[Rfam]
RNA sequence: ACUGUGGAGUGUACAAGAACUUGUGAGUAGACAGAACUUCGGUUCGUCAAAAGCAUACACGGUGAAGCAGUAA
Dot-bracket structure: (((((...(((((........(((.....(((.((((....)))))))....))))))))......)))))..
RNA: RAGATH-18 RNA